[Rfam]
RNA sequence: AUCUGUUAUGGAUAGUCUAGUGGAAGGGCGACUAUGAAGCUGGUAACCCUGCUUAGGUAAUCACCAGCGGGCAAGGUGCCUGGUUCGAAUCCUGGAGUCGCUGUUGUACUCGUGCGAGUAAUCCACGAUCGCUACGACGCGUUAAGCAAUGAAGAUGACCCUUGAGGGAAGCAAUUCUGCAGAGACAUCUUCACUCUGGGAUGGCGGCACCAGAUUACACCUGCCCGUUACAGGGAAGCUGGCUGUUAGGUCGUACAACCACUUUU
Number, nucleotide and partner (000 for none) at each position: 001a013002u012003c011004u000005g000006u000007u000008a000009u000010g000011g003012a002013u001014a000015g000016u000017c000018u000019a263020g262021u261022g260023g259024a000025a000026g256027g000028g254029c253030g252031a251032c250033u000034a000035u000036g246037a000038a244039g243040c242041u241042g240043g239044u238045a000046a000047c234048c233049c000050u000051g000052c069053u000054u067055a000056g065057g064058u063059a000060a000061u000062c000063a058064c057065c056066a000067g054068c000069g052070g226071g225072c000073a000074a222075g221076g220077u219078g218079c000080c213081u212082g211083g210084u209085u207086c206087g205088a000089a202090u201091c200092c199093u198094g197095g196096a195097g194098u000099c141100g000101c139102u000103g000104u000105u136106g135107u134108a133109c000110u128111c127112g126113u125114g124115c000116g123117a122118g000119u000120a000121a000122u117123c116124c114125a113126c112127g111128a110129u000130c000131g000132c000133u108134a107135c106136g105137a000138c000139g101140c000141g099142u146143u000144a000145a000146g142147c000148a000149a000150u193151g192152a191153a190154g189155a188156u187157g000158a000159c000160c000161c184162u183163u182164g000165a000166g000167g000168g177169a176170a175171g000172c000173a000174a000175u170176u169177c168178u000179g000180c000181a000182g163183a162184g161185a000186c000187a156188u155189c154190u153191u152192c151193a150194c097195u096196c095197u094198g093199g092200g091201a090202u089203g000204g000205c087206g086207g085208c000209a084210c083211c082212a081213g080214a000215u000216u000217a000218c078219a077220c076221c075222u074223g000224c000225c071226c070227g000228u000229u000230a000231c000232a000233g048234g047235g000236a000237a000238g044239c043240u042241g041242g040243c039244u038245g000246u036247u000248a000249g000250g032251u031252c030253g029254u028255a000256c026257a000258a000259c023260c022261a021262c020263u019264u000265u000266u000
RNA: Fungal signal recognition particle RNA
Organism: Paecilomyces variotii